[Rfam]
RNA: Archaeal small subunit ribosomal RNA, nucleotides 553 to 901
RNA sequence: GGCGUAAAGGGCACGUAGGCGGUGAAUCGGGUUGAAAGUGAAAGUCGCCAAAAACUGGUGGAAUGCUCUCGAAACCAAUUCACUUGAGUGAGACAGAGGAGAGUGGAAUUUCGUGUGUAGGGGUGAAAUCCGCAGAUCUACGAAGGAACGCCAAAAGCGAAGGCAGCUCUCUGGGUCCCUACCGACGCUGGAGUGCGAAAGCAUGGGGAGCGAACGGGAUUAGAUACCCUGGUAGUCCAUGCCGUAAACGAUGAGUGUUCGCCCUUGGUCUACGUGGAUCAGGGGCCCAGCUAACGCGUGAAACACUCCGCCUGGGGAGUACGGUCGCAAGACCGAAACUCAAAGGAAU
Numbered sequence: 001g002g003c004g005u006a007a008a009g010g011g012c013a014c015g016u017a018g019g020c021g022g023u024g025a026a027u028c029g030g031g032u033u034g035a036a037a038g039u040g041a042a043a044g045u046c047g048c049c050a051a052a053a054a055c056u057g058g059u060g061g062a063a064u065g066c067u068c069u070c071g072a073a074a075c076c077a078a079u080u081c082a083c084u085u086g087a088g089u090g091a092g093a094c095a096g097a098g099g100a101g102a103g104u105g106g107a108a109u110u111u112c113g114u115g116u117g118u119a120g121g122g123g124u125g126a127a128a129u130c131c132g133c134a135g136a137u138c139u140a141c142g143a144a145g146g147a148a149c150g151c152c153a154a155a156a157g158c159g160a161a162g163g164c165a166g167c168u169c170u171c172u173g174g175g176u177c178c179c180u181a182c183c184g185a186c187g188c189u190g191g192a193g194u195g196c197g198a199a200a201g202c203a204u205g206g207g208g209a210g211c212g213a214a215c216g217g218g219a220u221u222a223g224a225u226a227c228c229c230u231g232g233u234a235g236u237c238c239a240u241g242c243c244g245u246a247a248a249c250g251a252u253g254a255g256u257g258u259u260c261g262c263c264c265u266u267g268g269u270c271u272a273c274g275u276g277g278a279u280c281a282g283g284g285g286c287c288c289a290g291c292u293a294a295c296g297c298g299u300g301a302a303a304c305a306c307u308c309c310g311c312c313u314g315g316g317g318a319g320u321a322c323g324g325u326c327g328c329a330a331g332a333c334c335g336a337a338a339c340u341c342a343a344a345g346g347a348a349u
Base pairs, nucleotide, nucleotide: 001312002311003310009309011196012195013194014193016190018189019188020187022083023082024081025080026079027078030076031075032072033071034070035069037067038066039065040064045061046060047059048058049057050056088182089181090179092177093176094175098172099171100170101169102168103167104166105149109145110144111143112142113141114140115139120131121130122129157164158163201242202241203240204239205238206237210236211235215231216230217229218228253308254307255306256305257304258303261286262285263284264283265282266281267280268279269278270277271276290297291296314341315340316339323334324333325332326331